[Rfam]
RNA sequence: AACCCUAGGCUAGGCCUAGGGUUCCAAAAAGCUUACAGCGAGGUAUUAAAAAAACUCUUCCGAGAUGCUAAAAUAUUUUUGGUUCGCCAACCAAAAUAUCAGCAUUCGGAGG
Numbered sequence: 001a002a003c004c005c006u007a008g009g010c011u012a013g014g015c016c017u018a019g020g021g022u023u024c025c026a027a028a029a030a031g032c033u034u035a036c037a038g039c040g041a042g043g044u045a046u047u048a049a050a051a052a053a054a055c056u057c058u059u060c061c062g063a064g065a066u067g068c069u070a071a072a073a074u075a076u077u078u079u080u081g082g083u084u085c086g087c088c089a090a091c092c093a094a095a096a097u098a099u100c101a102g103c104a105u106u107c108g109g110a111g112g
Stems, first nucleotide, its partner, number of pairs: 001023010031039003057112008066104004072099001074098001077096007

The record is a 112-nucleotide RNA sequence from Sutcliffiella cohnii, which matches "STnc490 Hfq binding RNA" in Rfam. Taxonomically the source falls in Sutcliffiella (Bacteria, Bacillota, Bacilli, Caryophanales). The family's consensus secondary structure was predicted with WAR. The family's RNA type in Rfam is small RNA.